Background
The record is a 172-nucleotide RNA from Hoskinsella hominis, which matches "Lysine riboswitch aptamer" in Rfam. Gene Ontology term of the family: lysine biosynthetic process.
RNA sequence: UGUUUAAGAAGAGGCGCGUUGAUUAUGAGUAUGAUAUCGGAGAUCGAAAGUCUGUGAAGAUAUCAGAAAGGAUGAUACGCCGAAGCAGAUAGGUCAAAGUAUCUGCUGGGGGUAUGUUGAAGAAGCAUGCCACUGUCUUUAUGUUAAAACAUAAAGGAGCGCUAUCUUAAAA
Number, nucleotide and partner (000 for none) at each position: 001u000002g000003u000004u000005u000006a167007a000008g165009a000010a163011g162012a000013g000014g000015c000016g080017c079018g078019u077020u000021g000022a000023u000024u072025a000026u000027g000028a000029g000030u000031a000032u065033g064034a063035u062036a061037u060038c059039g000040g000041a000042g000043a000044u000045c000046g000047a000048a000049a000050g000051u000052c000053u000054g000055u000056g000057a000058a000059g038060a037061u036062a035063u034064c033065a032066g000067a000068a000069a000070g000071g000072a024073u000074g000075a000076u000077a019078c018079g017080c016081c000082g000083a000084a107085g106086c105087a104088g103089a102090u101091a100092g000093g000094u000095c000096a000097a000098a000099g000100u091101a090102u089103c088104u087105g086106c085107u084108g134109g133110g000111g131112g130113u129114a128115u127116g126117u125118u124119g000120a000121a000122g000123a000124a118125g117126c116127a115128u114129g113130c112131c111132a000133c109134u108135g000136u157137c156138u155139u154140u153141a152142u151143g000144u000145u000146a000147a000148a000149a000150c000151a142152u141153a140154a139155a138156g137157g136158a000159g000160c000161g000162c011163u010164a000165u008166c000167u006168u000169a000170a000171a000172a000
Taxonomically the source falls in Hoskinsella (Bacteria, Bacillota, Erysipelotrichia, Erysipelotrichaceae). A search with the family's covariance model found it, with a score of 110 bits.